RNA sequence: UUAGUUCCUGUAAACAUCCUACACUCAGCUAUAAGAAGUGGUGGGGCUGGGGGUUGGGUGUUUACUUCAACUGA
Numbered sequence: 001u002u003a004g005u006u007c008c009u010g011u012a013a014a015c016a017u018c019c020u021a022c023a024c025u026c027a028g029c030u031a032u033a034a035g036a037a038g039u040g041g042u043g044g045g046g047c048u049g050g051g052g053g054u055u056g057g058g059u060g061u062u063u064a065c066u067u068c069a070a071c072u073g074a
Stems, first nucleotide, its partner, number of pairs: 002073005010065010021054002024051007